U11 spliceosomal RNA: a 122-nucleotide sequence from Mesocricetus auratus.
The organism belongs to Mesocricetus, within Eukaryota.
The literature on the family includes a 1988 paper in Proc Natl Acad Sci U S A by Montzka and Steitz, "Additional low-abundance human small nuclear ribonucleoproteins: U11, U12, etc".
The family is grouped with related families in Rfam's "U1 clan".
RNA sequence: GAAAAGGGUUUCUGUCAUGAGUAGCACACAUAGGGCAACUCAAUUGCUCUGUGUGCAGAAUCAAGAGAUUUCAGAAGCCUAAUCUUCUGGUUCUUGGGCAGCUGGCGAUUGUUGGUACCCCA
Numbered sequence: 001g002a003a004a005a006g007g008g009u010u011u012c013u014g015u016c017a018u019g020a021g022u023a024g025c026a027c028a029c030a031u032a033g034g035g036c037a038a039c040u041c042a043a044u045u046g047c048u049c050u051g052u053g054u055g056c057a058g059a060a061u062c063a064a065g066a067g068a069u070u071u072c073a074g075a076a077g078c079c080u081a082a083u084c085u086u087c088u089g090g091u092u093c094u095u096g097g098g099c100a101g102c103u104g105g106c107g108a109u110u111g112u113u114g115g116u117a118c119c120c121c122a
Stems, first nucleotide, its partner, number of pairs: 008078005013026003017022001027055012058071005103122003107119001109117001
Dot-bracket structure: .......((((((((.(....).)))((((((((((((.....))))))))))))..(((((....)))))..)))))........................(((.(.(.......).))))